[Rfam]
Shown here is a 145-nucleotide RNA from Devosia oryzisoli, a member of the family "FMN riboswitch aptamer (RFN element)".
Rfam links the family to the GO term FMN binding.
RNA sequence: ACAUGUUCUCAGGGCGGGGUGAAAUUCCCCACCGGCGGUAAAGGCAGCGAUGCCAAGCCCGCGAGCGCCCUCGCCUGGCGAGGGGUCAGCAGAUCCGGUGCAAUUCCGGAGCCGACGGUUAGAGUCCGGAUGAAAGAGAACGGGA
Numbered sequence: 001a002c003a004u005g006u007u008c009u010c011a012g013g014g015c016g017g018g019g020u021g022a023a024a025u026u027c028c029c030c031a032c033c034g035g036c037g038g039u040a041a042a043g044g045c046a047g048c049g050a051u052g053c054c055a056a057g058c059c060c061g062c063g064a065g066c067g068c069c070c071u072c073g074c075c076u077g078g079c080g081a082g083g084g085g086u087c088a089g090c091a092g093a094u095c096c097g098g099u100g101c102a103a104u105u106c107c108g109g110a111g112c113c114g115a116c117g118g119u120u121a122g123a124g125u126c127c128g129g130a131u132g133a134a135a136g137a138g139a140a141c142g143g144g145a
Base pairs, nucleotide, nucleotide: 004142005141006140007139008138009137010136017029018028019027031125032124033114034113035062036061037060038059057112058111065090066089094110095109096108097107098106116128117127118126